A member of the RNA family "nhaA-I RNA" from Nannocystis pusilla, 51 nucleotides long. Pairs were carried over by alignment from the consensus structure, which is taken from published work. The family's RNA type in Rfam is riboswitch. It scores 52 bits against the family's covariance model.
[Rfam]
RNA sequence: GGGUGUGGCGGGAGGUCCGUCACAGGUUCUGGAGUGGUCGGGCCGCCAUUC
Numbered sequence: 001g002g003g004u005g006u007g008g009c010g011g012g013a014g015g016u017c018c019g020u021c022a023c024a025g026g027u028u029c030u031g032g033a034g035u036g037g038u039c040g041g042g043c044c045g046c047c048a049u050u051c
Stems, first nucleotide, its partner, number of pairs: 005023007032051007